[Rfam]
Rfam assigns this 595-nucleotide RNA to the family "ROOL RNA". It is one of the family's seed sequences. Rfam's curators write: Firmicutes, Fusobacteria (1 example), Tenericutes (1 example). The family's consensus secondary structure is taken from published work. By type it is a small RNA.

Nucleotides: 595
Stems, first nucleotide, its partner, number of pairs: 007592001010589001012587002019580001022577001025057005036050002038047002059158001061156004070105006079096003083092003106131011134145003138142001166557003176546001178544001183536001186337004193330004197295006213225004231276006237261004242255003247283004297358004306321005341446001347441005428518004450466001452464002468530003482526003487521002491514001493511006564575004
Number, partner (000 for none) and nucleotide at each position: 001000g002000g003000c004000a005000c006000c007592a008000a009000u010589u011000a012587a013586a014000u015000a016000u017000a018000u019580u020000a021000u022577u023000a024000a025057c026056c027055c028054a029053g030000u031000g032000u033000a034000u035000a036050a037049c038047u039046g040000c041000a042000a043000u044000a045000u046039c047038a048000u049037g050036u051000g052000g053029c054028u055027g056026g057025g058000a059158a060000u061156u062155a063154u064153c065000c066000a067000a068000u069000a070105a071104g072103u073102a074101g075100u076000c077000a078000g079096a080095c081094a082000u083092a084091a085090g086000g087000a088000u089000a090085c091084u092083u093000u094081u095080g096079u097000a098000a099000g100075g101074u102073u103072g104071c105070u106131u107130u108129a109128a110127a111126u112125g113124u114123a115122u116121a117000g118000u119000g120000a121116u122115a123114u124113a125112u126111g127110u128109u129108u130107a131106g132000a133000a134145g135144a136143u137000g138142u139000a140000a141000a142138a143136a144135u145134c146000a147000a148000u149000a150000a151000u152000g153064g154063a155062u156061a157000c158059u159000g160000u161000g162000c163000a164000g165000g166557a167556a168555a169000u170000a171000u172000c173000g174000u175000u176546u177000a178544a179000u180000a181000a182000a183536g184000c185000a186337c187336u188335a189334g190000a191000g192000u193330u194329g195328u196327c197295g198294u199293a200292g201291c202290a203000a204000u205000a206000a207000u208000a209000g210000a211000c212000g213225g214224a215223u216222a217000c218000g219000g220000u221000g222216u223215a224214u225213c226000a227000a228000u229000a230000a231276g232275c233274c234273u235272a236271c237261u238260g239259c240258c241000a242255g243254u244253c245000u246000g247283u248282g249281a250280c251000a252000a253244g254243a255242u256000a257000u258240g259239g260238u261237a262000a263000u264000g265000c266000u267000g268000a269000u270000u271236g272235u273234a274233g275232g276231u277000a278000a279000u280250g281249u282248c283247a284000a285000a286000a287000c288000a289000a290202u291201g292200c293199u294198a295197u296000u297358c298357c299356u300355u301000g302000u303000g304000a305000a306321g307320u308319u309318g310317u311000u312000g313000a314000a315000a316000g317310a318309u319308a320307a321306c322000u323000a324000u325000a326000a327196g328195a329194c330193a331000u332000a333000a334189c335188u336187a337186g338000g339000u340000u341446a342000a343000a344000g345000u346000a347441g348440c349439c350438c351437a352000a353000a354000c355300a356299a357298g358297g359000c360000a361000a362000a363000a364000a365000a366000g367000g368000g369000a370000a371000a372000a373000u374000c375000a376000g377000u378000a379000c380000a381000u382000a383000u384000g385000u386000a387000a388000u389000u390000u391000u392000g393000g394000a395000a396000g397000u398000a399000u400000u401000a402000a403000a404000a405000g406000a407000a408000a409000a410000c411000a412000a413000u414000a415000c416000a417000a418000a419000g420000a421000a422000a423000a424000a425000u426000u427000a428518u429517c430516u431515g432000a433000a434000u435000g436000a437351u438350g439349g440348g441347u442000g443000a444000a445000a446341u447000u448000u449000a450466g451000a452464a453463g454000u455000a456000g457000u458000c459000a460000a461000u462000c463453u464452u465000c466450u467000g468530u469529a470528u471000g472000c473000a474000u475000u476000g477000g478000c479000a480000u481000a482526g483525g484524g485000c486000a487521a488520g489000a490000a491514g492000u493511a494510a495509u496508g497507g498506a499000g500000u501000c502000g503000c504000u505000a506498u507497c508496c509495a510494u511493u512000g513000c514491u515431c516430a517429g518428a519000c520488u521487u522000g523000u524484u525483c526482u527000c528470a529469u530468a531000g532000u533000g534000g535000c536183u537000g538000a539000a540000u541000a542000a543000u544178u545000a546176a547000a548000a549000a550000g551000a552000u553000a554000u555168u556167u557166u558000g559000c560000u561000g562000u563000a564575a565574g566573g567572c568000g569000a570000a571000g572567g573566u574565c575564u576000a577022a578000u579000a580019a581000u582000a583000u584000a585000u586013u587012u588000a589010a590000u591000g592007u593000u594000u595000a